[Rfam]
The family of this 127-nucleotide RNA from Thamnophis sirtalis is "Small nucleolar RNA SNORD22".
A search with the family's covariance model found it, with a score of 93 bits.
On this family, see Tycowski et al., Nature 1996: "A mammalian gene with introns instead of exons generating stable RNA products".
The family has 49 seed sequences and 1,081 matches in Rfam 15.1.
By type it is a C/D-box small nucleolar RNA.
The family's consensus secondary structure was predicted with PFOLD.
RNA sequence: UCCCAGUGAUGAAAACCUACCACGUCUUACUGUCUGCUUGGUGCCAGAAACUGCAAAGUUUGAACCCACUGGUACCAGCAGGUGGAAAAGAGGAUGGAUUGCUUCAGAAGAAGCUGUCUGAUGGGAC
Numbered sequence: 001u002c003c004c005a006g007u008g009a010u011g012a013a014a015a016c017c018u019a020c021c022a023c024g025u026c027u028u029a030c031u032g033u034c035u036g037c038u039u040g041g042u043g044c045c046a047g048a049a050a051c052u053g054c055a056a057a058g059u060u061u062g063a064a065c066c067c068a069c070u071g072g073u074a075c076c077a078g079c080a081g082g083u084g085g086a087a088a089a090g091a092g093g094a095u096g097g098a099u100u101g102c103u104u105c106a107g108a109a110g111a112a113g114c115u116g117u118c119u120g121a122u123g124g125g126a127c
Stems, first nucleotide, its partner, number of pairs: 001126004